[Rfam]
RNA sequence: GUACAUGAAAGUGCUGAAGAAAAAGUUUACUUUGGAAUGGCUAUAAGCAUUAAAAAAAAGACAGAAAAUGUAC
Numbered sequence: 001g002u003a004c005a006u007g008a009a010a011g012u013g014c015u016g017a018a019g020a021a022a023a024a025g026u027u028u029a030c031u032u033u034g035g036a037a038u039g040g041c042u043a044u045a046a047g048c049a050u051u052a053a054a055a056a057a058a059a060g061a062c063a064g065a066a067a068a069u070g071u072a073c
Stems, first nucleotide, its partner, number of pairs: 001073006011062002022051002025048003033043003
Shown here is a 73-nucleotide RNA from Canis lupus, a member of the family "GAIT element". The literature on the family includes a 2003 paper in Mol Cell Biol by Sampath et al., "Transcript-selective translational silencing by gamma interferon is directed by a novel structural element in the ceruloplasmin mRNA 3' untranslated region". This family represents a cis-acting element in the 3'-UTR of the ceruloplasmin (Cp) gene called gamma interferon inhibitor of translation (GAIT). Rfam links the family to the GO term negative regulation of translation.